[Rfam]
RNA sequence: CUCGUGAUGUGUGCAUGGUUUUCAUCUGUGUCUGGUAGCAGGGUCUGUCUGUGUUUUGCAUUCAGAUCUUGCUGUCCACACGGGCAUCAUGCAGCCAGAGAGUAAGCUGGGAUCAUAGUACUGGUCUCGUGCUGCGUCUUCGGACGUAUCUUCCACUGGCCAGCCUCCAAAUUCCCACACAGAA
Numbered sequence: 001c002u003c004g005u006g007a008u009g010u011g012u013g014c015a016u017g018g019u020u021u022u023c024a025u026c027u028g029u030g031u032c033u034g035g036u037a038g039c040a041g042g043g044u045c046u047g048u049c050u051g052u053g054u055u056u057u058g059c060a061u062u063c064a065g066a067u068c069u070u071g072c073u074g075u076c077c078a079c080a081c082g083g084g085c086a087u088c089a090u091g092c093a094g095c096c097a098g099a100g101a102g103u104a105a106g107c108u109g110g111g112a113u114c115a116u117a118g119u120a121c122u123g124g125u126c127u128c129g130u131g132c133u134g135c136g137u138c139u140u141c142g143g144a145c146g147u148a149u150c151u152u153c154c155a156c157u158g159g160c161c162a163g164c165c166u167c168c169a170a171a172u173u174c175c176c177a178c179a180c181a182g183a184a
Stems, first nucleotide, its partner, number of pairs: 013092004029082003033078003036074006043067005050060003108177005121163006129156003133148006